[Rfam]
RNA: Plastid-rpl16 group II-D1 intron
Organism: Nicotiana sylvestris
RNA sequence: AAGAGAUUCGGGCCAAUAAAGAUAAAAAAGAUUGACUCAAGAAUCAA
Numbered sequence: 001a002a003g004a005g006a007u008u009c010g011g012g013c014c015a016a017u018a019a020a021g022a023u024a025a026a027a028a029a030g031a032u033u034g035a036c037u038c039a040a041g042a043a044u045c046a047a
Base pairs, nucleotide, nucleotide: 007041008040010038011037012036014034015033016032017031